[Rfam]
Mammalian CPEB3 ribozyme: a 73-nucleotide RNA from Crocodylus porosus. Lineage of the source: Eukaryota > Amniota > Sauria > Crocodylia > Crocodylus.
RNA sequence: AGAGCUUGAGGCCAUAGCAGAAGGUGCUCAGGGCACAGACAUGUCAGAUUUAAACGAAUCUGCAAAUUCUGCU
Numbered sequence: 001a002g003a004g005c006u007u008g009a010g011g012c013c014a015u016a017g018c019a020g021a022a023g024g025u026g027c028u029c030a031g032g033g034c035a036c037a038g039a040c041a042u043g044u045c046a047g048a049u050u051u052a053a054a055c056g057a058a059u060c061u062g063c064a065a066a067u068u069c070u071g072c073u
Base pairs, nucleotide, nucleotide: 010040012038016073017072018071019070020069021068022067024036025035026034045062046061047060048059049058050057051056